[Rfam]
RNA sequence: CAGGUGCUCCGAGCCAGUGCUCGGGGAGCACCUGGGACCCUGCGAGAGACCCGCAGUGCCCACAAGCCU
Numbered sequence: 001c002a003g004g005u006g007c008u009c010c011g012a013g014c015c016a017g018u019g020c021u022c023g024g025g026g027a028g029c030a031c032c033u034g035g036g037a038c039c040c041u042g043c044g045a046g047a048g049a050c051c052c053g054c055a056g057u058g059c060c061c062a063c064a065a066g067c068c069u
Base pairs, nucleotide, nucleotide: 001034002033003032004031006029007028008027009026010023011022012021013020014019035061036060038058042054043053044052

Record summary: A member of the RNA family "Rubella virus 3' cis-acting element" from Neogale vison, 69 nucleotides long. Rfam links the family to the GO term viral genome replication. For this family Rfam cites "Mutagenic analysis of the 3' cis-acting elements of the rubella virus genome" (Chen and Frey, J Virol, 1999). It scores 38 bits against the family's covariance model. The family's consensus secondary structure is taken from published work. Taxonomically the source falls in Neogale (Eukaryota, Euteleostomi, Carnivora, Caniformia). From the family's description: This family represents a cis-acting element found at the 3' UTR in the rubella virus. This family contains three conserved step loop structures.